[Rfam]
RNA sequence: CUUGAACGAGCCGAGCCACAACGGCCGGUCCUCGGGGCGGUCCUGACCGUAGGUGGCCAGCAGCGCCUGGGCUUC
Numbered sequence: 001c002u003u004g005a006a007c008g009a010g011c012c013g014a015g016c017c018a019c020a021a022c023g024g025c026c027g028g029u030c031c032u033c034g035g036g037g038c039g040g041u042c043c044u045g046a047c048c049g050u051a052g053g054u055g056g057c058c059a060g061c062a063g064c065g066c067c068u069g070g071g072c073u074u075c
Stems, first nucleotide, its partner, number of pairs: 015025003031071003038065002043060003047056003
Rfam assigns this 75-nucleotide sequence from Actinacidiphila reveromycinica to the family "ASpks TB sRNA". Lineage of the source: Bacteria > Bacillati > Actinomycetes > Streptomycetaceae > Actinacidiphila. It is annotated as an antisense RNA.